This 88-nucleotide sequence from Senna tora belongs to the Rfam family "small nucleolar RNA snoR114". For this family Rfam cites "Mining small RNA sequencing data: a new approach to identify small nucleolar RNAs in Arabidopsis" (Chen and Wu, Nucleic Acids Res, 2009). The base pairs follow the family's consensus structure, which was predicted with RNAalifold. The family has 24 seed sequences and 1,645 matches in Rfam 15.1. It is annotated as a C/D-box small nucleolar RNA. A search with the family's covariance model found it, with a score of 78 bits.
[Rfam]
RNA sequence: GAGCUGUGAUGAUAUUCUUGCAUAAAUGUGAUUCUAGGGUUAAUCACGACCGUCCGAUCUACGGAAGAAAAUAUGUGCAUCUGAGCUC
Dot-bracket structure: ((((................................................................................))))